[Rfam]
The record is an 88-nucleotide RNA from Salvia splendens, which matches "Small nucleolar RNA snoR27" in Rfam. The organism belongs to core Calosphace, within Eukaryota. Pairs were carried over by alignment from the consensus structure, which was predicted with WAR.
RNA sequence: UUUGGAUCAGUGAUGCUGUAUAUUACUGCGUUAUCUAUCUGUAAUGAACUCUUUUUUUUGAAGAUAACUUGUUAUCAUGAGAUCCAAU
Number, nucleotide and partner (000 for none) at each position: 001u000002u087003u086004g085005g084006a083007u082008c000009a000010g000011u000012g000013a000014u000015g000016c000017u000018g000019u000020a000021u000022a000023u000024u000025a000026c000027u000028g000029c000030g000031u000032u000033a000034u000035c000036u000037a000038u000039c000040u000041g000042u000043a000044a000045u000046g000047a000048a000049c000050u000051c000052u000053u000054u000055u000056u000057u000058u000059u000060g000061a000062a000063g000064a000065u000066a000067a000068c000069u000070u000071g000072u000073u000074a000075u000076c000077a000078u000079g000080a000081g000082a007083u006084c005085c004086a003087a002088u000